The family of this 140-nucleotide RNA sequence from Streptomyces sp. 3213.3 is "Group II catalytic intron D1-D4-4". Gene Ontology term of the family: Group II intron splicing. About the family: Group II introns are found in rRNA, tRNA and mRNA of organelles in fungi, plants and protists, and also in mRNA in bacteria. The match comes from Rfam's covariance-model search (72 bits). The pairing is the family consensus, mapped onto this sequence. Rfam 15.1 lists 840 matches to the family in 506 species.
RNA sequence: CUGCCGGUGGAAGUCCGGUCCGGGUAGCUGCCAGGAGGCCCCGUAGCAGACCGGCGGCGUCGGGGGGGGGAAAACGCCCGGUGUCGAAGCCCAGUGUCGAAAGCCCUGUAGGGGGAGCAAAGCAGCGGUGCGUAGCAUCA
Dot-bracket structure: ...................(.(((..............))).)......((.((((((((...(.(........).)...))))))....)).)).........((.....).)..((.............)).......